[Rfam]
RNA sequence: AGGGCUUCGACAGGCUCAGCCUGACAGGUAACUUGAUUUAAUGGAUUCAAGUUACCUGUCAGGCUGAGCCUGUCGAAGCCCU
Numbered sequence: 001a002g003g004g005c006u007u008c009g010a011c012a013g014g015c016u017c018a019g020c021c022u023g024a025c026a027g028g029u030a031a032c033u034u035g036a037u038u039u040a041a042u043g044g045a046u047u048c049a050a051g052u053u054a055c056c057u058g059u060c061a062g063g064c065u066g067a068g069c070c071u072g073u074c075g076a077a078g079c080c081c082u
Stems, first nucleotide, its partner, number of pairs: 003080009013070009023060006030053007
RNA: mir-999 microRNA precursor family